Rfam assigns this 360-nucleotide part of an RNA from an uncultured archaeon to the family "Archaeal large subunit ribosomal RNA". The literature on the family includes a 2001 paper in Science by Yusupov et al., "Crystal structure of the ribosome at 5.5 A resolution".
RNA sequence: AGUAGUAACAGCAAAGUCGGGUGAGAAUCCCGAUCGCCGAAGGGGCUAGGUUUCCUCGGCAAUGAUCGUCAGCCGAGGGUUAGUCGAUCCUAAGAUGUACCGUAAGUCGAGUACAUCGAAAGGGAAACAGGUUAAUAUUCCUGUACCGUUUUGGCAAUUAAACUGACGCAUCCGGGUAGGUUGAGCAGUCAUAUGUCAGGCUGUCUAAGCACCGAAACUUGUGGAGAGCCGUAAUGGUGAGAAGCAAGUGAAUGUGUAAUGGCGAAAGUCAACUUAUCCCAGGUGACCGUGAAAAGGGAGCCAAAAUGAUCGUACCGAGAACUGACACAGGUGCCCCUAGCUGAAAAGGCUAAGGCGUGU
Numbered sequence: 001a002g003u004a005g006u007a008a009c010a011g012c013a014a015a016g017u018c019g020g021g022u023g024a025g026a027a028u029c030c031c032g033a034u035c036g037c038c039g040a041a042g043g044g045g046c047u048a049g050g051u052u053u054c055c056u057c058g059g060c061a062a063u064g065a066u067c068g069u070c071a072g073c074c075g076a077g078g079g080u081u082a083g084u085c086g087a088u089c090c091u092a093a094g095a096u097g098u099a100c101c102g103u104a105a106g107u108c109g110a111g112u113a114c115a116u117c118g119a120a121a122g123g124g125a126a127a128c129a130g131g132u133u134a135a136u137a138u139u140c141c142u143g144u145a146c147c148g149u150u151u152u153g154g155c156a157a158u159u160a161a162a163c164u165g166a167c168g169c170a171u172c173c174g175g176g177u178a179g180g181u182u183g184a185g186c187a188g189u190c191a192u193a194u195g196u197c198a199g200g201c202u203g204u205c206u207a208a209g210c211a212c213c214g215a216a217a218c219u220u221g222u223g224g225a226g227a228g229c230c231g232u233a234a235u236g237g238u239g240a241g242a243a244g245c246a247a248g249u250g251a252a253u254g255u256g257u258a259a260u261g262g263c264g265a266a267a268g269u270c271a272a273c274u275u276a277u278c279c280c281a282g283g284u285g286a287c288c289g290u291g292a293a294a295a296g297g298g299a300g301c302c303a304a305a306a307u308g309a310u311c312g313u314a315c316c317g318a319g320a321a322c323u324g325a326c327a328c329a330g331g332u333g334c335c336c337c338u339a340g341c342u343g344a345a346a347a348g349g350c351u352a353a354g355g356c357g358u359g360u
Stems, first nucleotide, its partner, number of pairs: 016034006035357004043336004049316002054078006063071002085312003089123002094117006101109002127144005147308008163297002169285004174280003179274005185204005209257004218248005228238003263268001322331002338352004
Its family is annotated with ribosome and structural constituent of ribosome in the Gene Ontology.